[Rfam]
RNA: FMN riboswitch aptamer (RFN element)
Organism: Janthinobacterium agaricidamnosum
RNA sequence: AUACGUCUUCGGGGCGGGGUGCGAUUCCCCACCGGCGGUAAAACCGGCAACGGUUGAGCCCGCGAGCGCUUGCGGUGCGAUAUUAAUACGGCAAGGUCAGCAGAUCUGGUGCGAAACCAGGGCCGACGGUAUAGUCCGGAUGAAAGAAGAUGUGC
Numbered sequence: 001a002u003a004c005g006u007c008u009u010c011g012g013g014g015c016g017g018g019g020u021g022c023g024a025u026u027c028c029c030c031a032c033c034g035g036c037g038g039u040a041a042a043a044c045c046g047g048c049a050a051c052g053g054u055u056g057a058g059c060c061c062g063c064g065a066g067c068g069c070u071u072g073c074g075g076u077g078c079g080a081u082a083u084u085a086a087u088a089c090g091g092c093a094a095g096g097u098c099a100g101c102a103g104a105u106c107u108g109g110u111g112c113g114a115a116a117c118c119a120g121g122g123c124c125g126a127c128g129g130u131a132u133a134g135u136c137c138g139g140a141u142g143a144a145a146g147a148a149g150a151u152g153u154g155c
Base pairs, nucleotide, nucleotide: 003153004152005151006150007149008148009147010146017029018028019027031135032134033125034124035063036062037061038060058123059122066101067100105121106120107119108118109117127138128137129136